Rfam assigns this 95-nucleotide sequence from Campylobacter geochelonis to the family "Selenocysteine transfer RNA".
Gene Ontology term of the family: triplet codon-amino acid adaptor activity.
[Rfam]
RNA sequence: UGGAGAGUAAGACGACCUGGUGGCGUUCGCGGACUUCAAAUCCGAUGAUGGGGCGGUUGACCGUUUCGUGGGAGGUUCAAUUCCUUCACUCUCUC
Numbered sequence: 001u002g003g004a005g006a007g008u009a010a011g012a013c014g015a016c017c018u019g020g021u022g023g024c025g026u027u028c029g030c031g032g033a034c035u036u037c038a039a040a041u042c043c044g045a046u047g048a049u050g051g052g053g054c055g056g057u058u059g060a061c062c063g064u065u066u067c068g069u070g071g072g073a074g075g076u077u078c079a080a081u082u083c084c085u086u087c088a089c090u091c092u093c094u095c
Base pairs, nucleotide, nucleotide: 002094003093004092005091006090007089008088011027012026013025014024016023017022030044031043032042033041048069049068050067051066052065053064054063072086073085074084075083